[Rfam]
RNA sequence: GCAUUAGGGAAAGGAAUCUGCUGUGGGUCCCACUCCAGAGUGCAUAACAUGGUUGGUGGGCACAGAAUGCGGCCCCUGCUGUG
Numbered sequence: 001g002c003a004u005u006a007g008g009g010a011a012a013g014g015a016a017u018c019u020g021c022u023g024u025g026g027g028u029c030c031c032a033c034u035c036c037a038g039a040g041u042g043c044a045u046a047a048c049a050u051g052g053u054u055g056g057u058g059g060g061c062a063c064a065g066a067a068u069g070c071g072g073c074c075c076c077u078g079c080u081g082u083g
Base pairs, nucleotide, nucleotide: 001082002081005078006077007076008075009074013070015068017066018065019064020063022062023061024060027057030056031055032054034052035051
The family of this 83-nucleotide RNA sequence from Enhydra lutris is "mir-541 microRNA precursor family". The family's consensus secondary structure was predicted with RNAalifold. The literature on the family includes a 2005 paper in BMC Bioinformatics by Sewer et al., "Identification of clustered microRNAs using an ab initio prediction method". Taxonomically the source falls in Enhydra lutris (Eukaryota, Metazoa, Mammalia, Eutheria). Its family is annotated with type B pancreatic cell development, long-term synaptic potentiation and miRNA-mediated post-transcriptional gene silencing in the Gene Ontology.